Rfam assigns this 261-nucleotide part of an RNA from Melghirimyces profundicolus to the family "Bacterial large subunit ribosomal RNA".
Pairs were carried over by alignment from the consensus structure, which is taken from published work.
[Rfam]
RNA sequence: GGAAAUUUGAGAGGAGCCGUCCUUAGUACGAGAGGACCGGGACGGACGCACCGCUGGUGUACCAGUUGUGCCGCCAGGUGCAUCGCUGGGUAGCCAAGUGCGGAAGGGAUAAGCGCUGAAAGCAUCUAAGCGUGAAGCCCCCCUCAAGAUGAGAUUUCCCACUGGUACGACCAGGUAAGACCCCUUGAAGAUGACGAGGUAGAUCGGUCCGGGGUGUAAGCGUGGCAACACGUUGAGCUGACGGAUACGAAUCGGUCGAGG
Numbered sequence: 001g002g003a004a005a006u007u008u009g010a011g012a013g014g015a016g017c018c019g020u021c022c023u024u025a026g027u028a029c030g031a032g033a034g035g036a037c038c039g040g041g042a043c044g045g046a047c048g049c050a051c052c053g054c055u056g057g058u059g060u061a062c063c064a065g066u067u068g069u070g071c072c073g074c075c076a077g078g079u080g081c082a083u084c085g086c087u088g089g090g091u092a093g094c095c096a097a098g099u100g101c102g103g104a105a106g107g108g109a110u111a112a113g114c115g116c117u118g119a120a121a122g123c124a125u126c127u128a129a130g131c132g133u134g135a136a137g138c139c140c141c142c143c144u145c146a147a148g149a150u151g152a153g154a155u156u157u158c159c160c161a162c163u164g165g166u167a168c169g170a171c172c173a174g175g176u177a178a179g180a181c182c183c184c185u186u187g188a189a190g191a192u193g194a195c196g197a198g199g200u201a202g203a204u205c206g207g208u209c210c211g212g213g214g215u216g217u218a219a220g221c222g223u224g225g226c227a228a229c230a231c232g233u234u235g236a237g238c239u240g241a242c243g244g245a246u247a248c249g250a251a252u253c254g255g256u257c258g259a260g261g
Stems, first nucleotide, its partner, number of pairs: 001159008011145004017045007047102005055096003062089005067082006106140003113133005162174003176259001179257004183199005204250003207246005213239002220233005